RNA sequence: AGCAAAAUGAUGAAAUCAGAUUUAUUUUAAUCUGAAUUUGAUGUGGAAUUUCAAAUCAUGCCUUCAAAGUUCUCUGAUUGCU
Numbered sequence: 001a002g003c004a005a006a007a008u009g010a011u012g013a014a015a016u017c018a019g020a021u022u023u024a025u026u027u028u029a030a031u032c033u034g035a036a037u038u039u040g041a042u043g044u045g046g047a048a049u050u051u052c053a054a055a056u057c058a059u060g061c062c063u064u065c066a067a068a069g070u071u072c073u074c075u076g077a078u079u080g081c082u
Stems, first nucleotide, its partner, number of pairs: 001082005

The family of this 82-nucleotide sequence from Malus domestica is "Small nucleolar RNA R160".
NCBI's taxonomy places the organism under Eukaryota, Viridiplantae, Euphyllophyta, Gunneridae, Malus.
From the family's description: snoR160 is a C/D box small nucleolar RNA, which acts as a methylation guide for 25S ribosomal RNA in plants. snoR160 has been alternatively named snoZ270 in rice.
The pairing is the family consensus, mapped onto this sequence.
For this family Rfam cites "The high diversity of snoRNAs in plants: identification and comparative study of 120 snoRNA genes from Oryza sativa" (Chen et al., Nucleic Acids Res, 2003).